[Rfam]
RNA sequence: UCGACUGUACUCGAACGGGAUCAUUUCUAUAGUGAAUCCGAUCGUAUUGGGCUACAGCUCUUGACAACACCUCUGUCCGUGACGAUGAGUUAUCCAUCCCGCCGGGAACGGGAAGCGUAGCCUGUUUCUACUCUGCUCUUAUCUGGUUCCUCUUAUCUCCUUUGGAAUUUAAGUUGGUCCAGGUAAUGCGCUUAUGUAUGCUUGCACGGCAUUGAUGACCCAGCGGAGUUUCUUGGGUUGGAACUCCGAGCGGUGUGGAUGAUUCUGAACGGCC
Numbered sequence: 001u002c003g004a005c006u007g008u009a010c011u012c013g014a015a016c017g018g019g020a021u022c023a024u025u026u027c028u029a030u031a032g033u034g035a036a037u038c039c040g041a042u043c044g045u046a047u048u049g050g051g052c053u054a055c056a057g058c059u060c061u062u063g064a065c066a067a068c069a070c071c072u073c074u075g076u077c078c079g080u081g082a083c084g085a086u087g088a089g090u091u092a093u094c095c096a097u098c099c100c101g102c103c104g105g106g107a108a109c110g111g112g113a114a115g116c117g118u119a120g121c122c123u124g125u126u127u128c129u130a131c132u133c134u135g136c137u138c139u140u141a142u143c144u145g146g147u148u149c150c151u152c153u154u155a156u157c158u159c160c161u162u163u164g165g166a167a168u169u170u171a172a173g174u175u176g177g178u179c180c181a182g183g184u185a186a187u188g189c190g191c192u193u194a195u196g197u198a199u200g201c202u203u204g205c206a207c208g209g210c211a212u213u214g215a216u217g218a219c220c221c222a223g224c225g226g227a228g229u230u231u232c233u234u235g236g237g238u239u240g241g242a243a244c245u246c247c248g249a250g251c252g253g254u255g256u257g258g259a260u261g262a263u264u265c266u267g268a269a270c271g272g273c274c
Base pairs, nucleotide, nucleotide: 001041002040003039006035008034009033010032011031017028018027019026020025045069047067048066049065077272078271079270080269095261096260097259098258099257100255101254102253103252104251110221111220112219120210121209124205227245228244229243230242232240
RNA: ACEA small nucleolar RNA U3
Organism: Cryptosporidium hominis